[Rfam]
RNA sequence: UCGAUCGCGAGGUCGAAUCUGAAGGAAGUCGGCGGCAAAUCUCCGGCCCGAGGAACACGAAUCUCAUAGAAGGCUAACGUUCGUUGGAUGAGGCUGCUUAACAAGUCGAAGUCCUUACUGCCGAAGGCGGAUGGGAGUAAAUGAGACGGGUAGGUGGAGAGGAAGAUAGCGUU
Dot-bracket structure: ((((((....))))))...........(.((....(...(((((((((((...........((((((.....(((..(((((((.((((..((((........))))...))))............)))))))..)))..)))))))))))...))))))....)....)).)
RNA: Group II catalytic intron D1-D4-3
Organism: Paenibacillus larvae